The record is a 101-nucleotide RNA sequence from Caballeronia glathei, which matches "Burkholderia sRNA Bp1_Cand684_SIPHT" in Rfam. The source organism's lineage runs through Bacteria, Pseudomonadati, Pseudomonadota, Betaproteobacteria and Caballeronia.
[Rfam]
RNA sequence: AAGAAAGUGACUGCCGCCCCGCACAGGGGCGAAGCUAAUAGACCGAUAAGAAAACAAGUUUCAUAGGAGCGGAGGCGCAUCAAACGGUUCUACAGCCGCCG
Numbered sequence: 001a002a003g004a005a006a007g008u009g010a011c012u013g014c015c016g017c018c019c020c021g022c023a024c025a026g027g028g029g030c031g032a033a034g035c036u037a038a039u040a041g042a043c044c045g046a047u048a049a050g051a052a053a054a055c056a057a058g059u060u061u062c063a064u065a066g067g068a069g070c071g072g073a074g075g076c077g078c079a080u081c082a083a084a085c086g087g088u089u090c091u092a093c094a095g096c097c098g099c100c101g
Stems, first nucleotide, its partner, number of pairs: 012079003015031006058070005